[Rfam]
The record is a 120-nucleotide sequence from Glycine soja, which matches "MIR1520 microRNA precursor family" in Rfam. The family's consensus secondary structure was predicted with RNAalifold. Its family is annotated with RISC complex and miRNA-mediated post-transcriptional gene silencing in the Gene Ontology. Rfam 15.1 lists 1,934 matches to the family in 15 species. Clan: MIR1520 microRNA precursor clan.

RNA sequence: UUCCUAUUGGAUGAUGACUGUCACAUGUCAUAUUUUGAUUGGAUGUCAACUCUAUGGAAGAUGAAAUGUAUUGUUAUUGUUAUUGGUCAAUCAGAACAUGACACGUGACAGUCAUCAUCC
Numbered sequence: 001u002u003c004c005u006a007u008u009g010g011a012u013g014a015u016g017a018c019u020g021u022c023a024c025a026u027g028u029c030a031u032a033u034u035u036u037g038a039u040u041g042g043a044u045g046u047c048a049a050c051u052c053u054a055u056g057g058a059a060g061a062u063g064a065a066a067u068g069u070a071u072u073g074u075u076a077u078u079g080u081u082a083u084u085g086g087u088c089a090a091u092c093a094g095a096a097c098a099u100g101a102c103a104c105g106u107g108a109c110a111g112u113c114a115u116c117a118u119c120c
Base pairs, nucleotide, nucleotide: 020109021108022107023106026103029100030099031098033096034095035094036093038091039090040089
Dot-bracket structure: ...................((((..(..(((.((((.(((................................................))).)))).)))..)..))))...........